The record is a 101-nucleotide RNA sequence from Albimonas pacifica, which matches "TPP riboswitch aptamer (THI element)" in Rfam. The base pairs follow the family's consensus structure, which is taken from published work. Vitamin B(1) in its active form thiamin pyrophosphate (TPP) is an essential coenzyme that is synthesised by coupling of pyrimidine and thiazole moieties in bacteria. The previously detected thiamin-regulatory element, thi box was extended, resulting in a new, highly conserved RNA secondary structure, the THI element, which is widely distributed in eubacteria and also occurs in some archaea. Analysis of operon structures identified a large number of new candidate thiamin-regulated genes, mostly transporters, in various prokaryotic organisms. The THI element is a riboswitch that directly binds to TPP to regulate gene expression through a variety of mechanisms in archaea, bacteria and eukaryotes. through a variety of mechanisms in archaea, bacteria and eukaryotes. Tandem TPP riboswitches have been reported where both TPP riboswitches respond independently to TPP. The structure of TPP riboswitch has been reported for Escherichia coli and Arabidopsis thaliana. NCBI's taxonomy places the organism under Bacteria, Pseudomonadati, Rhodobacterales, Paracoccaceae, Albimonas.

[Rfam]
Nucleotides: 101
Base pairs, nucleotide, nucleotide: 006089007088008087009086010085011051012050013049014048017030018029019028020027021026037044038043057082058081059080060079063076064075065074066073
Number, partner (000 for none) and nucleotide at each position: 001000g002000a003000c004000c005000a006089u007088c008087c009086g010085u011051u012050g013049g014048g015000g016000c017030g018029c019028c020027c021026c022000g023000u024000c025000c026021g027020g028019g029018g030017c031000u032000g033000a034000g035000a036000g037044g038043c039000g040000c041000g042000a043038g044037c045000c046000g047000a048014c049013c050012c051011a052000u053000c054000g055000a056000a057082c058081c059080u060079g061000a062000u063076c064075c065074g066073g067000g068000c069000a070000a071000u072000g073066c074065c075064g076063g077000c078000g079060u080059a081058g082057g083000g084000a085010a086009c087008g088007g089006a090000g091000c092000a093000c094000g095000a096000c097000c098000c099000c100000g101000g